RNA: Alphaproteobacteria transfer-messenger RNA
Organism: Brevundimonas subvibrioides
RNA sequence: UAUCUUGGAUGCAAGGGCAUCUGCCCCUAUAUUGCUCCUUGCCGGAGCUUGCUCCGGAUAUGGCGAUAAACGCGCUUGUAAUAAGCGGACCGGACCCGGGUGCGAUUCCCGGCGGCUCCACCAUUCUUCUCCCGCGUUAUCGGCGGAAGCGUAUGGGGCCGACUAGCAUCGACGGACGUGUAAAGAAGAUUGCUUUCGCUCGUCCUGGCCCACCGUAUCGGGCCAUUUUCUAACUGCGAACGAUAACUUCGCUGGAGAAGUCCGCCUCGCCGCGUAAUGCGGUUCGGUUGAUUUCGAAUCUUAAGUCCUAGGGGUUCAGAUCCUUAGGCGGGGCCGCCGGAGGGCCUGCCAACAGAACCUCCGGCACU
Numbered sequence: 001u002a003u004c005u006u007g008g009a010u011g012c013a014a015g016g017g018c019a020u021c022u023g024c025c026c027c028u029a030u031a032u033u034g035c036u037c038c039u040u041g042c043c044g045g046a047g048c049u050u051g052c053u054c055c056g057g058a059u060a061u062g063g064c065g066a067u068a069a070a071c072g073c074g075c076u077u078g079u080a081a082u083a084a085g086c087g088g089a090c091c092g093g094a095c096c097c098g099g100g101u102g103c104g105a106u107u108c109c110c111g112g113c114g115g116c117u118c119c120a121c122c123a124u125u126c127u128u129c130u131c132c133c134g135c136g137u138u139a140u141c142g143g144c145g146g147a148a149g150c151g152u153a154u155g156g157g158g159c160c161g162a163c164u165a166g167c168a169u170c171g172a173c174g175g176a177c178g179u180g181u182a183a184a185g186a187a188g189a190u191u192g193c194u195u196u197c198g199c200u201c202g203u204c205c206u207g208g209c210c211c212a213c214c215g216u217a218u219c220g221g222g223c224c225a226u227u228u229u230c231u232a233a234c235u236g237c238g239a240a241c242g243a244u245a246a247c248u249u250c251g252c253u254g255g256a257g258a259a260g261u262c263c264g265c266c267u268c269g270c271c272g273c274g275u276a277a278u279g280c281g282g283u284u285c286g287g288u289u290g291a292u293u294u295c296g297a298a299u300c301u302u303a304a305g306u307c308c309u310a311g312g313g314g315u316u317c318a319g320a321u322c323c324u325u326a327g328g329c330g331g332g333g334c335c336g337c338c339g340g341a342g343g344g345c346c347u348g349c350c351a352a353c354a355g356a357a358c359c360u361c362c363g364g365c366a367c368u
Stems, first nucleotide, its partner, number of pairs: 042057006062200005072193003075188003086178002090175003096112005113161007201215002206225006331347004338364001340362001342360001